[Rfam]
RNA sequence: UGCCUAUCCGCAUCUAAUGAUGAGGAUUAAGCCCAUACGGACAGGCGGGGCAGCUGCCGA
Number, nucleotide and partner (000 for none) at each position: 001u052002g051003c050004c049005u048006a027007u026008c025009c024010g000011c022012a021013u020014c019015u000016a000017a000018u000019g014020a013021u012022g011023a000024g009025g008026a007027u006028u000029a000030a000031g000032c000033c000034c000035a000036u000037a000038c000039g000040g000041a000042c000043a000044g000045g000046c000047g000048g005049g004050g003051c002052a001053g000054c000055u000056g000057c000058c000059g000060a000
Streptococcus sRNA SpF59 (ldcC RNA): a 60-nucleotide sequence. It is one of the family's seed sequences. On this family, see Mann et al., PLoS Pathog 2012: "Control of virulence by small RNAs in Streptococcus pneumoniae".